[Rfam]
RNA: Small nucleolar RNA SNORA29
RNA sequence: AUUCCUGUUUUAGUCCCAUUCAUCUUCCUCUGCUCAGGAUGUGUGGCUAUGCUAACAGGAUAUAUGAACUGUCUGUCAGAGUCUGAAGGGGUAGAUAGCUACACGCACUGCCUCUAUAUGUACUGGCAGAACAUCAGUCA
Numbered sequence: 001a002u003u004c005c006u007g008u009u010u011u012a013g014u015c016c017c018a019u020u021c022a023u024c025u026u027c028c029u030c031u032g033c034u035c036a037g038g039a040u041g042u043g044u045g046g047c048u049a050u051g052c053u054a055a056c057a058g059g060a061u062a063u064a065u066g067a068a069c070u071g072u073c074u075g076u077c078a079g080a081g082u083c084u085g086a087a088g089g090g091g092u093a094g095a096u097a098g099c100u101a102c103a104c105g106c107a108c109u110g111c112c113u114c115u116a117u118a119u120g121u122a123c124u125g126g127c128a129g130a131a132c133a134u135c136a137g138u139c140a
Stems, first nucleotide, its partner, number of pairs: 004059004016046004075127004093115003